[Rfam]
RNA sequence: UGCAAAUGCACUCUGUGUCACAUUGAAAUUAACUACAUGUGAAGACAAUUUGUUAGUUUGCUAUAUUAAAGAGAUGCGUCUUAUCCACGCAAUUACUUCCGUAUCAGGAUGAUUGCGUUGAAAUCGCAUUUUACACUAU
Numbered sequence: 001u002g003c004a005a006a007u008g009c010a011c012u013c014u015g016u017g018u019c020a021c022a023u024u025g026a027a028a029u030u031a032a033c034u035a036c037a038u039g040u041g042a043a044g045a046c047a048a049u050u051u052g053u054u055a056g057u058u059u060g061c062u063a064u065a066u067u068a069a070a071g072a073g074a075u076g077c078g079u080c081u082u083a084u085c086c087a088c089g090c091a092a093u094u095a096c097u098u099c100c101g102u103a104u105c106a107g108g109a110u111g112a113u114u115g116c117g118u119u120g121a122a123a124u125c126g127c128a129u130u131u132u133a134c135a136c137u138a139u
Stems, first nucleotide, its partner, number of pairs: 002061006010053002014047003018042006025036001067138002072132003076127003084121002087118008096108001
Small nucleolar RNA psi18S-841/snoR66: a 139-nucleotide RNA sequence from Drosophila erecta. Clan: SNORA28 clan. From the family's description: psi18S-841 is a member of the H/ACA class of snoRNA. This family is responsible for guiding the modification of uridine 841 in Drosophila 18S rRNA to pseudouridine. Pairs were carried over by alignment from the consensus structure, which was predicted with RNAfold. Its family is annotated with RNA processing and nucleolus in the Gene Ontology.